[Rfam]
RNA sequence: GGGGGUGACUGGUUUCGACUCGGGACGGUAGUCCCAGGAGAAGCGGGCCGAGGAUCCCAGAACAUCUCGUAAACGACGCUGGGGAACCUAUAACUGCCGACAACAAUCGCGCAGACUUCGCUCUCGCUGCCUGAUCAGUGAUCGAAGGGUCAGCCCGGGUGUAGCCUUCCGCCCGGUUCCUGGCCUCAUCUAGGAGGCUUGCUGGUUAGCUGACGCCUUGGCGGCUAACCGGGACUUCACCAGGGCUGGGCCUGUCCGCGACGUGCCGAUGACGAGCGCGGGGGCCGAGUAGAACGACACCAUCGGCUGCGCCCGGAGAAGACCUGGGUCGCCUCGUGAGGACGCGGGUUCAAUUCCCGCCACCUCCACCC
Dot-bracket structure: (((((((...........((((.((.(...(.((((((.....((((((((((..[[[[[....))))).........]]]]]........................................((((((......))))))......((((((.(((((((..[[[[[[)))))))...)))))).......]]]]]]...(((((((((....[.[[[....)))))))))..........]]].].(((((..(((......[[[[..........)))))))).................]]]]...))))).......)))))).).).)).))))...(((((.......))))))))))))....
The family of this 371-nucleotide sequence from Propioniciclava flava is "transfer-messenger RNA". Rfam describes the family as follows. Bacterial tmRNA, also known as 10Sa RNA or SsrA, is named for its dual tRNA and mRNA-like properties. Its role is to liberate the mRNA from a stalled ribosome. To accomplish this part of the tmRNA is used as a reading frame that ends in a translation stop signal. The broken mRNA is replaced in the ribosome by the tmRNA and translation of the tmRNA leads to addition of a proteolysis tag to the incomplete protein enabling recognition by a protease. Recently a number of permuted tmRNA genes have been found encoded in two parts. tmRNAs have been identified in eubacteria and some chloroplasts but are absent from archaeal and eukaryote nuclear genomes. Taxonomically the source falls in Propioniciclava (Bacteria, Bacillati, Actinomycetota, Propionibacteriaceae).